[Rfam]
RNA sequence: GGGUUACUCCUUGGCGCUUGCGCGCUGUUUUGAUGAAGAUUCGCACCUCUAUCAAAACGGGUAACCCCGCCUCUUGGCAAGGCCUUACUGUCAGAUCAAGUCUGAACUUCUACACCUUACUUGAGGCUGCCCGAGAGGAAUUGCUUCAGGCGCUCGCUGCGCGUGUUGCCGAACACCUCGGCGGGCGCGCCU
Numbered sequence: 001g002g003g004u005u006a007c008u009c010c011u012u013g014g015c016g017c018u019u020g021c022g023c024g025c026u027g028u029u030u031u032g033a034u035g036a037a038g039a040u041u042c043g044c045a046c047c048u049c050u051a052u053c054a055a056a057a058c059g060g061g062u063a064a065c066c067c068c069g070c071c072u073c074u075u076g077g078c079a080a081g082g083c084c085u086u087a088c089u090g091u092c093a094g095a096u097c098a099a100g101u102c103u104g105a106a107c108u109u110c111u112a113c114a115c116c117u118u119a120c121u122u123g124a125g126g127c128u129g130c131c132c133g134a135g136a137g138g139a140a141u142u143g144c145u146u147c148a149g150g151c152g153c154u155c156g157c158u159g160c161g162c163g164u165g166u167u168g169c170c171g172a173a174c175a176c177c178u179c180g181g182c183g184g185g186c187g188c189g190c191c192u
Base pairs, nucleotide, nucleotide: 001067002066003065004064005063006062007061009060010059014025015024016023017022027058028057029056030055031054032053033052034051035050037048038047075148076147077146081142082141085140086139090107091106092104093103094102095101096100109136110135111134166184167183168182169181170180171179172178